Record summary:
The record is an 86-nucleotide RNA sequence from a Burkholderiales bacterium, which matches "SAH (S-adenosyl-L-homocysteine) riboswitch aptamer" in Rfam. The match comes from Rfam's covariance-model search (63 bits).
RNA sequence: CCCUCCGAGGAGCGCUGCAAUCGGUCCGCCCGCCCGGGCGCCCGACCAGGCUCGGAGACCGUCCGUUUGAACGGCGCUCGUUGACC
Numbered sequence: 001c002c003c004u005c006c007g008a009g010g011a012g013c014g015c016u017g018c019a020a021u022c023g024g025u026c027c028g029c030c031c032g033c034c035c036g037g038g039c040g041c042c043c044g045a046c047c048a049g050g051c052u053c054g055g056a057g058a059c060c061g062u063c064c065g066u067u068u069g070a071a072c073g074g075c076g077c078u079c080g081u082u083g084a085c086c
Stems, first nucleotide, its partner, number of pairs: 003057006021045004026040001

Overview: The family's consensus secondary structure is taken from published work.